[Rfam]
RNA sequence: UAUCAGUUAUAUGACUGACGGAACGUGGAAUUAACCACAUGAAGUAUAACGAUGACAAUGCCGACCGUCUGGGCG
Numbered sequence: 001u002a003u004c005a006g007u008u009a010u011a012u013g014a015c016u017g018a019c020g021g022a023a024c025g026u027g028g029a030a031u032u033a034a035c036c037a038c039a040u041g042a043a044g045u046a047u048a049a050c051g052a053u054g055a056c057a058a059u060g061c062c063g064a065c066c067g068u069c070u071g072g073g074c075g
Base pairs, nucleotide, nucleotide: 006050007049008048009047010046011045012044015041017069018068019067020066021065025038026037027036028035059075060074061073062072

Shown here is a 75-nucleotide RNA, a member of the family "ZMP/ZTP riboswitch aptamer (pfl RNA motif)". The sequence is in the family's curated seed alignment.